[Rfam]
This 91-nucleotide RNA sequence from Actinomyces glycerinitolerans belongs to the Rfam family "SAM riboswitch aptamer (S box leader)". It scores 52 bits against the family's covariance model. The source organism's lineage runs through Bacteria, Actinomycetota, Actinomycetales, Actinomycetaceae and Actinomyces. Rfam links the family to the GO term regulation of gene expression. The base pairs follow the family's consensus structure, which is taken from published work.
RNA sequence: CGACCAUCCAGAGCAACCGAGAGACCUGGCUCAUCGACGUUGCAGCAACCCCCGUUCGCGGUGAGGGUGCUACCGCCAGGACCGAUGGAGG
Numbered sequence: 001c002g003a004c005c006a007u008c009c010a011g012a013g014c015a016a017c018c019g020a021g022a023g024a025c026c027u028g029g030c031u032c033a034u035c036g037a038c039g040u041u042g043c044a045g046c047a048a049c050c051c052c053c054g055u056u057c058g059c060g061g062u063g064a065g066g067g068u069g070c071u072a073c074c075g076c077c078a079g080g081a082c083c084g085a086u087g088g089a090g091g
Stems, first nucleotide, its partner, number of pairs: 001091001004088005013043005021032003026079004044071004049067002051063001053061001075083001